TPP riboswitch aptamer (THI element): a 105-nucleotide RNA sequence from Alkalicoccus daliensis. The source organism's lineage runs through Bacteria, Bacillati, Bacillota, Bacillaceae and Alkalicoccus.
RNA sequence: CCACCACUCUAGGGGGGCUGCGCUGCAGCUGAGAGAGACAUUUGUCUUGACCCUUAUUCACCUGAUCUAGUUAGGACUAGCGGAGGGAAGAAGUGGCAGGAUCGA
Numbered sequence: 001c002c003a004c005c006a007c008u009c010u011a012g013g014g015g016g017g018c019u020g021c022g023c024u025g026c027a028g029c030u031g032a033g034a035g036a037g038a039c040a041u042u043u044g045u046c047u048u049g050a051c052c053c054u055u056a057u058u059c060a061c062c063u064g065a066u067c068u069a070g071u072u073a074g075g076a077c078u079a080g081c082g083g084a085g086g087g088a089a090g091a092a093g094u095g096g097c098a099g100g101a102u103c104g105a
Stems, first nucleotide, its partner, number of pairs: 008091003011054004016048001017029005036047004061086003067080004